[Rfam]
RNA sequence: CCCCUUUCAUCGCCGGCGGGCGACGCCUAUAUUCGUUCUGCCGACGCAAGUCGGAUACGGCGAUAAAUGGGUGUCGGAAUAAGCCUUUCGGACCCGGGGGCGGUACCCGGCGCCUCCACCAAAGCCCAACUUCCCCUUCAGGGAGGCGGGCUCCGGCGGGGGCGAAAUAGGAUCGACGAGGGUGUAAAGGGCAUACUUUCGCUCGGCAUGGUUCCGCCGUCAUCGGGCCGAACUGAUAGUUGCGAAUGACAACUAUGCUCCGGUUGCUCAGGCCGCGUGAGCGGUUUGACGAUCGAAAUCAAAGUCCUACCGGGUAGCACUGGCUAGGCGGGGUUCGGAGGCACCUGGCAACAGAAGCCUCCACU
Numbered sequence: 001c002c003c004c005u006u007u008c009a010u011c012g013c014c015g016g017c018g019g020g021c022g023a024c025g026c027c028u029a030u031a032u033u034c035g036u037u038c039u040g041c042c043g044a045c046g047c048a049a050g051u052c053g054g055a056u057a058c059g060g061c062g063a064u065a066a067a068u069g070g071g072u073g074u075c076g077g078a079a080u081a082a083g084c085c086u087u088u089c090g091g092a093c094c095c096g097g098g099g100g101c102g103g104u105a106c107c108c109g110g111c112g113c114c115u116c117c118a119c120c121a122a123a124g125c126c127c128a129a130c131u132u133c134c135c136c137u138u139c140a141g142g143g144a145g146g147c148g149g150g151c152u153c154c155g156g157c158g159g160g161g162g163c164g165a166a167a168u169a170g171g172a173u174c175g176a177c178g179a180g181g182g183u184g185u186a187a188a189g190g191g192c193a194u195a196c197u198u199u200c201g202c203u204c205g206g207c208a209u210g211g212u213u214c215c216g217c218c219g220u221c222a223u224c225g226g227g228c229c230g231a232a233c234u235g236a237u238a239g240u241u242g243c244g245a246a247u248g249a250c251a252a253c254u255a256u257g258c259u260c261c262g263g264u265u266g267c268u269c270a271g272g273c274c275g276c277g278u279g280a281g282c283g284g285u286u287u288g289a290c291g292a293u294c295g296a297a298a299u300c301a302a303a304g305u306c307c308u309a310c311c312g313g314g315u316a317g318c319a320c321u322g323g324c325u326a327g328g329c330g331g332g333g334u335u336c337g338g339a340g341g342c343a344c345c346u347g348g349c350a351a352c353a354g355a356a357g358c359c360u361c362c363a364c365u
Stems, first nucleotide, its partner, number of pairs: 041054004059203005069196001071194005084182003088179003094110005111164007204219004209230003214226002331346004337362006
Rfam assigns this 365-nucleotide RNA from Xanthobacter versatilis to the family "Alphaproteobacteria transfer-messenger RNA". The family's RNA type in Rfam is non-coding RNA gene. Taxonomically the source falls in Xanthobacter (Bacteria, Alphaproteobacteria, Hyphomicrobiales, Xanthobacteraceae). The sequence is in the family's curated seed alignment. Clan: tRNA clan.